[Rfam]
This 92-nucleotide sequence from Pogona vitticeps belongs to the Rfam family "mir-30 microRNA precursor family". The family has 175 seed sequences and 3,879 matches in Rfam 15.1. This family consists of the mammalian microRNA (miRNA) precursor mir-30a. Animal miRNAs are transcribed as ~70nt precursors and subsequently processed by the Dicer enzyme to give a ~22nt product.

RNA sequence: GCGAUCUUUGCAAACACCCGCCCAUCAGCUGUGCUUCGGGCUGGCUGAUGGGCCCAAAGCACAGCUGAUGGGUGGGUGUUUGCAAAGAUCGC
Dot-bracket structure: .(((((.(((((((((((((((((((((((((((((....................))))))))))))))))))))))))))))).))))).
Its family is annotated with gene silencing by miRNA and RISC complex in the Gene Ontology.